Rfam assigns this 170-nucleotide RNA from Paramagnetospirillum caucaseum to the family "RT-15 RNA". The organism belongs to Paramagnetospirillum, within Bacteria. It is annotated as a small RNA. It is one of the family's seed sequences.

RNA sequence: GAGCGCCUGAUGCCCGAAGGUCAAGGCCUUCGCGCCCGUGCGCAUCAUUUGGUCGGGGUAGCGGCCCCUCCCGAUGCAUACGGGGUCGCUCCAGGCGCCGAUGGGAUACGGCGGGUGCUCCCCCGCGCGUCCCGGCGCAGCUCGGCCGGCGUCGAUGACCCGGCGGCGAA
Numbered sequence: 001g002a003g004c005g006c007c008u009g010a011u012g013c014c015c016g017a018a019g020g021u022c023a024a025g026g027c028c029u030u031c032g033c034g035c036c037c038g039u040g041c042g043c044a045u046c047a048u049u050u051g052g053u054c055g056g057g058g059u060a061g062c063g064g065c066c067c068c069u070c071c072c073g074a075u076g077c078a079u080a081c082g083g084g085g086u087c088g089c090u091c092c093a094g095g096c097g098c099c100g101a102u103g104g105g106a107u108a109c110g111g112c113g114g115g116u117g118c119u120c121c122c123c124c125g126c127g128c129g130u131c132c133c134g135g136c137g138c139a140g141c142u143c144g145g146c147c148g149g150c151g152u153c154g155a156u157g158a159c160c161c162g163g164c165g166g167c168g169a170a
Stems, first nucleotide, its partner, number of pairs: 004042003012035002015032007054163001056161004060090002063087005095138004102134004108130002111126005141149002